[Rfam]
RNA sequence: CUCAACCAGGCCUCCUGUAGCUCAGGGGGCAGGCCUGAGCCCUGAGACUGUCCCACGACCAUCCAGCCCCCAGACGGGGAACCCCGUCCUGAGGGGCUUCGCACUGGCCCCCACCGAGGCAGGGGAUCUGACCGACUUGGAGCUCAGCUGGAUGUUACAGGCGUGCAAA
Numbered sequence: 001c002u003c004a005a006c007c008a009g010g011c012c013u014c015c016u017g018u019a020g021c022u023c024a025g026g027g028g029g030c031a032g033g034c035c036u037g038a039g040c041c042c043u044g045a046g047a048c049u050g051u052c053c054c055a056c057g058a059c060c061a062u063c064c065a066g067c068c069c070c071c072a073g074a075c076g077g078g079g080a081a082c083c084c085c086g087u088c089c090u091g092a093g094g095g096g097c098u099u100c101g102c103a104c105u106g107g108c109c110c111c112c113a114c115c116g117a118g119g120c121a122g123g124g125g126a127u128c129u130g131a132c133c134g135a136c137u138u139g140g141a142g143c144u145c146a147g148c149u150g151g152a153u154g155u156u157a158c159a160g161g162c163g164u165g166c167a168a169a
Stems, first nucleotide, its partner, number of pairs: 008043003012039003017034002020030004044164001046162001048160003060154006068096004075091005098141004105130001106128002109125004142148002